Rfam assigns this 144-nucleotide sequence from Elaeis guineensis to the family "small nucleolar RNA snoR135". Rfam 15.1 lists 837 matches to the family in 220 species. A search with the family's covariance model found it, with a score of 62 bits. Its family is annotated with RNA processing and nucleolus in the Gene Ontology. The family's RNA type in Rfam is H/ACA-box small nucleolar RNA. The organism belongs to Elaeis, within Eukaryota. The family's consensus secondary structure was predicted with RNAalifold. On this family, see Chen and Wu, Nucleic Acids Res 2009: "Mining small RNA sequencing data: a new approach to identify small nucleolar RNAs in Arabidopsis".
[Rfam]
RNA sequence: GUUGCAGGAUCUGUAUCGGCAACUUGCUUUCAUGGUAUGCAUUUGUUGCCGAGCAUUCCUGCUACAGUGAUUCUAGAGGAAGAUGGGCAGUUGAUUUCCACUCUUAUUUUGGUGGGAAUCUUGACAACUAUUUUCCUCAUAUUU
Number, nucleotide and partner (000 for none) at each position: 001g000002u000003u000004g062005c061006a060007g059008g058009a057010u000011c000012u041013g040014u039015a038016u037017c000018g000019g000020c000021a000022a000023c000024u000025u000026g000027c000028u000029u000030u000031c000032a000033u000034g000035g000036u000037a016038u015039g014040c013041a012042u000043u000044u000045g000046u000047u000048g000049c000050c000051g000052a000053g000054c000055a000056u000057u009058c008059c007060u006061g005062c004063u000064a000065c000066a000067g000068u000069g000070a000071u000072u000073c000074u000075a000076g138077a137078g136079g135080a134081a133082g132083a131084u130085g129086g128087g000088c000089a000090g125091u124092u123093g122094a000095u000096u000097u000098c000099c000100a000101c000102u000103c000104u000105u000106a000107u000108u000109u000110u000111g000112g000113u000114g000115g000116g000117a000118a000119u000120c000121u000122u093123g092124a091125c090126a000127a000128c086129u085130a084131u083132u082133u081134u080135c079136c078137u077138c076139a000140u000141a000142u000143u000144u000